[Rfam]
RNA sequence: CGGCGAUGUCUCCUAGCCGUUAUCGAUGGAGAUACUCGGUCAUGCUGUGGGUGAAAACCUUAGAUGCUGGUCAUCAAGGGUGUGACGUGAGGACGGGUUGAAUGCCCA
Numbered sequence: 001c002g003g004c005g006a007u008g009u010c011u012c013c014u015a016g017c018c019g020u021u022a023u024c025g026a027u028g029g030a031g032a033u034a035c036u037c038g039g040u041c042a043u044g045c046u047g048u049g050g051g052u053g054a055a056a057a058c059c060u061u062a063g064a065u066g067c068u069g070g071u072c073a074u075c076a077a078g079g080g081u082g083u084g085a086c087g088u089g090a091g092g093a094c095g096g097g098u099u100g101a102a103u104g105c106c107c108a
Stems, first nucleotide, its partner, number of pairs: 001019004007034007035091004039086008049060004063075004095107004
The family of this 108-nucleotide RNA sequence from Evansella caseinilytica is "epsC RNA". Pairs were carried over by alignment from the consensus structure, which is taken from published work. It scores 100 bits against the family's covariance model.